[Rfam]
RNA sequence: AGAACACACAUUAAUUAUUCCUAGGGCCAUGGGAUAAACAAAAACCCUGCAAAAACAAGUUAGCACAGCCUAGAAUGGUUCUAGCACAAUUUCUAACUUAUGGAUUUGAUACCAGUUAAAGGGAAAAGCUC
Numbered sequence: 001a002g003a004a005c006a007c008a009c010a011u012u013a014a015u016u017a018u019u020c021c022u023a024g025g026g027c028c029a030u031g032g033g034a035u036a037a038a039c040a041a042a043a044a045c046c047c048u049g050c051a052a053a054a055a056c057a058a059g060u061u062a063g064c065a066c067a068g069c070c071u072a073g074a075a076u077g078g079u080u081c082u083a084g085c086a087c088a089a090u091u092u093c094u095a096a097c098u099u100a101u102g103g104a105u106u107u108g109a110u111a112c113c114a115g116u117u118a119a120a121g122g123g124a125a126a127a128g129c130u131c
Stems, first nucleotide, its partner, number of pairs: 009121001011119006022108004027103007048086002053080002056077002060073004
MIR845_2 microRNA precursor family: a 131-nucleotide RNA sequence from Vitis vinifera. The family's consensus secondary structure was predicted with WAR.